[Rfam]
The family of this 68-nucleotide RNA from Anguilla anguilla is "mir-29 microRNA precursor family". Pairs were carried over by alignment from the consensus structure, which was predicted with PFOLD. Rfam's curators write: This family represents the microRNA (miRNA) precursors mir-29. Gene Ontology terms of the family: RISC complex and gene silencing by miRNA. The source organism's lineage runs through Eukaryota, Actinopterygii, Teleostei, Anguillidae and Anguilla. The family has 168 seed sequences and 3,328 matches in Rfam 15.1. A search with the family's covariance model found it, with a score of 62 bits.

RNA sequence: GGAUGACUGAUUUCUGUUGGUGCGUAGAUCCCUCUGUGGCCUCUAGCACCAUUUGAAAUCGGUUAUAA
Numbered sequence: 001g002g003a004u005g006a007c008u009g010a011u012u013u014c015u016g017u018u019g020g021u022g023c024g025u026a027g028a029u030c031c032c033u034c035u036g037u038g039g040c041c042u043c044u045a046g047c048a049c050c051a052u053u054u055g056a057a058a059u060c061g062g063u064u065a066u067a068a
Stems, first nucleotide, its partner, number of pairs: 003066002005063001007062008018051005025045004